[Rfam]
RNA: MIR5565 microRNA precursor family
RNA sequence: ACUCUAGUAUUUACCUUAGUCCACAUGUGUUGAGGUGGAUUGGGGUGUAAAUUAGUUUAAGUUACACCCUAAUCCACCUUAAUAUAUGUGGAUUAAAGUCUAUACUAGA
Numbered sequence: 001a002c003u004c005u006a007g008u009a010u011u012u013a014c015c016u017u018a019g020u021c022c023a024c025a026u027g028u029g030u031u032g033a034g035g036u037g038g039a040u041u042g043g044g045g046u047g048u049a050a051a052u053u054a055g056u057u058u059a060a061g062u063u064a065c066a067c068c069c070u071a072a073u074c075c076a077c078c079u080u081a082a083u084a085u086a087u088g089u090g091g092a093u094u095a096a097a098g099u100c101u102a103u104a105c106u107a108g109a
Base pairs, nucleotide, nucleotide: 004108005107006106007105008104009103010102013099014098016096017095018094019093020092021091022090023089024088025087026086027085028084029083030082031081032080035077036076037075038074039073040072041071042070043069045067046066047065